[Rfam]
RNA: Guanidine-I riboswitch aptamer
Organism: Elainella sp. C42_A2020_010
RNA sequence: AUUUAUUGCCUCUAGGGUUCCGAUUCGGCUGAUCUCCGUUAGGCUGAAUGGCUGGUCCAAGAGAGGCAGGCUAGUGUUUAGGCGCAAGUUUUUCAGAUUGAAGCAAUCGCUAGCCACACGGCGGGAGAAAAGCCCGGGAGGA
Numbered sequence: 001a002u003u004u005a006u007u008g009c010c011u012c013u014a015g016g017g018u019u020c021c022g023a024u025u026c027g028g029c030u031g032a033u034c035u036c037c038g039u040u041a042g043g044c045u046g047a048a049u050g051g052c053u054g055g056u057c058c059a060a061g062a063g064a065g066g067c068a069g070g071c072u073a074g075u076g077u078u079u080a081g082g083c084g085c086a087a088g089u090u091u092u093u094c095a096g097a098u099u100g101a102a103g104c105a106a107u108c109g110c111u112a113g114c115c116a117c118a119c120g121g122c123g124g125g126a127g128a129a130a131a132g133c134c135c136g137g138g139a140g141g142a
Base pairs, nucleotide, nucleotide: 007068008067009066010065011064012063015058016057020055021054022052023049024048025047026046027045028044029043030042069115070114071113072112073111074110075109076108117137119140123135124134125133